Description
Saccharopolyspora sRNA 350: a 505-nucleotide sequence from Streptomyces sp. TverLS-915. Lineage of the source: Bacteria > Actinomycetota > Kitasatosporales > Streptomycetaceae > Streptomyces. Gene Ontology term of the family: regulation of secondary metabolite biosynthetic process.
RNA sequence: GCCGUGCUCUCCCAGACGGCGUCGUCCGACAGGAGGGCCUGCUCGCCGAAGUAGGAGCCGUCGCCGAUGAGGCCGAGGCUCGUCUCGUCGCCGUACGAGCCGGUGCCGAGGCGGGCGAUGCGGCCGUGGGCGAGGAGGUGGACCGCGUCGGCGGACUCCCCCGCGGUCGUGAUGACCGUACCGGCGGGGUAGACGCGCUGCUCGCAGCGGCCCGCGAGUUCGCGGAGCGCCUCGGCGUCCUCGAAGUCGCGCAGCGGCGGCAGUUCGCGCAGCUCGUCGGGGAUGACGCUGACCUGUGAGCCGGUCUGGACGAAGGUGACGCGGCCGUCGCCCACGGAGUAGGAGAGGCGGCGGUUGACCCGGUAGGUGCCGCCCUGCACAGAGACCCACGGCAGCGCCUUGAGCAGCCAGCGGGAGGUGAUCUCCUGCAUCUGCGGCGCGGACUUCGUGGUGGUGGCGAGAUUGCGCGCCGCCGCUGCCCCGAGUGCCUGCUGGGGCGUUUCCU
Numbered sequence: 001g002c003c004g005u006g007c008u009c010u011c012c013c014a015g016a017c018g019g020c021g022u023c024g025u026c027c028g029a030c031a032g033g034a035g036g037g038c039c040u041g042c043u044c045g046c047c048g049a050a051g052u053a054g055g056a057g058c059c060g061u062c063g064c065c066g067a068u069g070a071g072g073c074c075g076a077g078g079c080u081c082g083u084c085u086c087g088u089c090g091c092c093g094u095a096c097g098a099g100c101c102g103g104u105g106c107c108g109a110g111g112c113g114g115g116c117g118a119u120g121c122g123g124c125c126g127u128g129g130g131c132g133a134g135g136a137g138g139u140g141g142a143c144c145g146c147g148u149c150g151g152c153g154g155a156c157u158c159c160c161c162c163g164c165g166g167u168c169g170u171g172a173u174g175a176c177c178g179u180a181c182c183g184g185c186g187g188g189g190u191a192g193a194c195g196c197g198c199u200g201c202u203c204g205c206a207g208c209g210g211c212c213c214g215c216g217a218g219u220u221c222g223c224g225g226a227g228c229g230c231c232u233c234g235g236c237g238u239c240c241u242c243g244a245a246g247u248c249g250c251g252c253a254g255c256g257g258c259g260g261c262a263g264u265u266c267g268c269g270c271a272g273c274u275c276g277u278c279g280g281g282g283a284u285g286a287c288g289c290u291g292a293c294c295u296g297u298g299a300g301c302c303g304g305u306c307u308g309g310a311c312g313a314a315g316g317u318g319a320c321g322c323g324g325c326c327g328u329c330g331c332c333c334a335c336g337g338a339g340u341a342g343g344a345g346a347g348g349c350g351g352c353g354g355u356u357g358a359c360c361c362g363g364u365a366g367g368u369g370c371c372g373c374c375c376u377g378c379a380c381a382g383a384g385a386c387c388c389a390c391g392g393c394a395g396c397g398c399c400u401u402g403a404g405c406a407g408c409c410a411g412c413g414g415g416a417g418g419u420g421a422u423c424u425c426c427u428g429c430a431u432c433u434g435c436g437g438c439g440c441g442g443a444c445u446u447c448g449u450g451g452u453g454g455u456g457g458c459g460a461g462a463u464u465g466c467g468c469g470c471c472g473c474c475g476c477u478g479c480c481c482c483g484a485g486u487g488c489c490u491g492c493u494g495g496g497g498c499g500u501u502u503c504c505u
Stems, first nucleotide, its partner, number of pairs: 004387001007384004013377001015325001018322001020318004025313002035307005044300001046298001049295001051230002058225004062108002065105001072100001074099001077096001080093001082091002114221002119214002124209001127206001128203005135196001137194001146189001151185002154182001157180001159174001162171003232292003237287003241283002247279001249277003253274003257268003326339001328337002348376001350374005358368003388428002391425002394422001396420003400415002404412001434473004439468003443464001445461005475503001477499003481496002484493002